[Rfam]
RNA: Small nucleolar RNA SNORA77
Organism: Ciccaba nigrolineata
RNA sequence: GCAGACUCACUCUGUACUGAACUGCAGCCUUCAGUUCAGGUGCUUUUUCUGUCUGCGAGAGUAAUGGUUCACAGAGUGACAAUUGCCUUCUUUCUUGUAGAAGGCUGUUACAAUUGCUGUUGCGACACUCCU
Numbered sequence: 001g002c003a004g005a006c007u008c009a010c011u012c013u014g015u016a017c018u019g020a021a022c023u024g025c026a027g028c029c030u031u032c033a034g035u036u037c038a039g040g041u042g043c044u045u046u047u048u049c050u051g052u053c054u055g056c057g058a059g060a061g062u063a064a065u066g067g068u069u070c071a072c073a074g075a076g077u078g079a080c081a082a083u084u085g086c087c088u089u090c091u092u093u094c095u096u097g098u099a100g101a102a103g104g105c106u107g108u109u110a111c112a113a114u115u116g117c118u119g120u121u122g123c124g125a126c127a128c129u130c131c132u
Stems, first nucleotide, its partner, number of pairs: 001056006014043004018038003022034003073132002075129004080124001083122001